A member of the RNA family "Bacterial RNase P class A" from Paenibacillus baekrokdamisoli, 421 nucleotides long. The source organism's lineage runs through Bacteria, Bacillati, Bacillota, Paenibacillaceae and Paenibacillus. From the family's description: Ribonuclease P (RNase P) is a ubiquitous endoribonuclease, found in archaea, bacteria and eukarya as well as chloroplasts and mitochondria. A search with the family's covariance model found it, with a score of 263 bits. The family's consensus secondary structure is taken from published work.

RNA sequence: AAAGUUUGACAGACAAUCGCUGGUGGCUGAUGAGGCCGCGAGAGGAAAGUCCGGGCUCCGAAGGGCGAAGAUGCUGGAUAACAUCCAGUCGGCGCGAGCCGAAGGAUAGUGCCACAGAAAUGGACCGCCGAUGACCGGUUAGCCGGAACAGGCAAGGGUGGAACCGUGGUGUAAGAGACCACGAGGACCGUUGGUGACAACGGUGCUGGUAAACCCCAUCUGGAGCAAGACCGAGAGAACGAAGCAGACGAGCGGAUUAGUCCGUUUGCGCUGCACCCUUGCCCGGGGAGCGUUCGGGUUGGUUGCUUGAGCUGAUUAGCAAUGAUCGGCCUAGAUAGAUGAUUGUCGCUCAAAAGUGGGAGGGUUGUUCCCGUUCGAACCACAGGCGAGCACAGAACCCGGCUUACGGCAAACUUUCCAU
Numbered sequence: 001a002a003a004g005u006u007u008g009a010c011a012g013a014c015a016a017u018c019g020c021u022g023g024u025g026g027c028u029g030a031u032g033a034g035g036c037c038g039c040g041a042g043a044g045g046a047a048a049g050u051c052c053g054g055g056c057u058c059c060g061a062a063g064g065g066c067g068a069a070g071a072u073g074c075u076g077g078a079u080a081a082c083a084u085c086c087a088g089u090c091g092g093c094g095c096g097a098g099c100c101g102a103a104g105g106a107u108a109g110u111g112c113c114a115c116a117g118a119a120a121u122g123g124a125c126c127g128c129c130g131a132u133g134a135c136c137g138g139u140u141a142g143c144c145g146g147a148a149c150a151g152g153c154a155a156g157g158g159u160g161g162a163a164c165c166g167u168g169g170u171g172u173a174a175g176a177g178a179c180c181a182c183g184a185g186g187a188c189c190g191u192u193g194g195u196g197a198c199a200a201c202g203g204u205g206c207u208g209g210u211a212a213a214c215c216c217c218a219u220c221u222g223g224a225g226c227a228a229g230a231c232c233g234a235g236a237g238a239a240c241g242a243a244g245c246a247g248a249c250g251a252g253c254g255g256a257u258u259a260g261u262c263c264g265u266u267u268g269c270g271c272u273g274c275a276c277c278c279u280u281g282c283c284c285g286g287g288g289a290g291c292g293u294u295c296g297g298g299u300u301g302g303u304u305g306c307u308u309g310a311g312c313u314g315a316u317u318a319g320c321a322a323u324g325a326u327c328g329g330c331c332u333a334g335a336u337a338g339a340u341g342a343u344u345g346u347c348g349c350u351c352a353a354a355a356g357u358g359g360g361a362g363g364g365u366u367g368u369u370c371c372c373g374u375u376c377g378a379a380c381c382a383c384a385g386g387c388g389a390g391c392a393c394a395g396a397a398c399c400c401g402g403c404u405u406a407c408g409g410c411a412a413a414c415u416u417u418c419c420a421u
Base pairs, nucleotide, nucleotide: 001417002416003415004414005413006412007411008410010408012347013346014345015344016343017342018341020042021041023039024038025037026036027035028034047405048404049403051402052401053400054399055398056225057224058223059222064284065283069221070220071219072218073217074088075087076086077085078084089103090101091100092099093098104216105215109214110213111210112209113208125157126156127153128152129151135146136145137144138143165183166182167181168180169179170178185206187204188203189202190201191200192199193198229304230303231302232301237295238294239293240292241291276288277287278286279285311330312329313328314327315326316325317324318323